The record is a 175-nucleotide sequence from Clostridium celatum, which matches "Lysine riboswitch aptamer" in Rfam.
RNA sequence: GGUAAAGAUAGAGGUUGCAAUAUUAAAGAGUAAUAUUAUGGAGUUAAGCACGAUGAAUUAAUAUAAAAGGUAGUAUUGCCGAAGUAUAUAGAGGAUGCUUUAAAUCUAUAUGCUGGGGUUGCAUAAAAUAUAUGCAAAACUGUCACAAUAAUAAUUGUGGAGAGCUAUCUUUGUG
Numbered sequence: 001g002g003u004a005a006a007g008a009u010a011g012a013g014g015u016u017g018c019a020a021u022a023u024u025a026a027a028g029a030g031u032a033a034u035a036u037u038a039u040g041g042a043g044u045u046a047a048g049c050a051c052g053a054u055g056a057a058u059u060a061a062u063a064u065a066a067a068a069g070g071u072a073g074u075a076u077u078g079c080c081g082a083a084g085u086a087u088a089u090a091g092a093g094g095a096u097g098c099u100u101u102a103a104a105u106c107u108a109u110a111u112g113c114u115g116g117g118g119u120u121g122c123a124u125a126a127a128a129u130a131u132a133u134g135c136a137a138a139a140c141u142g143u144c145a146c147a148a149u150a151a152u153a154a155u156u157g158u159g160g161a162g163a164g165c166u167a168u169c170u171u172u173g174u175g
Stems, first nucleotide, its partner, number of pairs: 006170006017079009033064006083114010115141002119137007143160007